[Rfam]
RNA sequence: CCUCAAAAAAGGCACACUUGCUGAAAAGUAAGGUCGCAAAGUCUUGAGUCUAAAGCAUAAAGCCAUGACUGUCGGACUGCUGAA
Numbered sequence: 001c002c003u004c005a006a007a008a009a010a011g012g013c014a015c016a017c018u019u020g021c022u023g024a025a026a027a028g029u030a031a032g033g034u035c036g037c038a039a040a041g042u043c044u045u046g047a048g049u050c051u052a053a054a055g056c057a058u059a060a061a062g063c064c065a066u067g068a069c070u071g072u073c074g075g076a077c078u079g080c081u082g083a084a
Base pairs, nucleotide, nucleotide: 012037013036017032018031019030020029021028022027040078041077042076043075045074046073047072048069049068050067055063056062

Record summary:
The record is an 84-nucleotide RNA sequence from Acetohalobium arabaticum, which matches "c-di-GMP-I riboswitch aptamer" in Rfam. It scores 69 bits against the family's covariance model. About the family: GEMM was predicted in a large-scale screen for bacterial structured RNA regulatory elements.